[Rfam]
This 196-nucleotide RNA sequence from Oryza sativa belongs to the Rfam family "MIR812 microRNA precursor family". Pairs were carried over by alignment from the consensus structure, which was predicted with RNAalifold.
RNA sequence: UUUAAGCGUAGCUAUAAGUUUCCGUAUUCAAUUUUAAUUAUUCGUUUUAUUUAACUUUUUUUGAAAAAAUUUAAAAAACAUAAGUCACAAAUAAAAUACUAUUUAUGUUUUAUCAUCUAAUAACAACAAAAAUACUAUUUUUUUUAAAUAAAACGAACCAUCAAAAUUAGACAAAAAACUCAUGACUGUCUUUUAA
Numbered sequence: 001u002u003u004a005a006g007c008g009u010a011g012c013u014a015u016a017a018g019u020u021u022c023c024g025u026a027u028u029c030a031a032u033u034u035u036a037a038u039u040a041u042u043c044g045u046u047u048u049a050u051u052u053a054a055c056u057u058u059u060u061u062u063g064a065a066a067a068a069a070u071u072u073a074a075a076a077a078a079c080a081u082a083a084g085u086c087a088c089a090a091a092u093a094a095a096a097u098a099c100u101a102u103u104u105a106u107g108u109u110u111u112a113u114c115a116u117c118u119a120a121u122a123a124c125a126a127c128a129a130a131a132a133u134a135c136u137a138u139u140u141u142u143u144u145u146a147a148a149u150a151a152a153a154c155g156a157a158c159c160a161u162c163a164a165a166a167u168u169a170g171a172c173a174a175a176a177a178a179c180u181c182a183u184g185a186c187u188g189u190c191u192u193u194u195a196a
Stems, first nucleotide, its partner, number of pairs: 027171002030168006037161002041157010
Dot-bracket structure: ..........................((.((((((.((..((((((((((.................................................................................................))))))))))..)).)))))).)).........................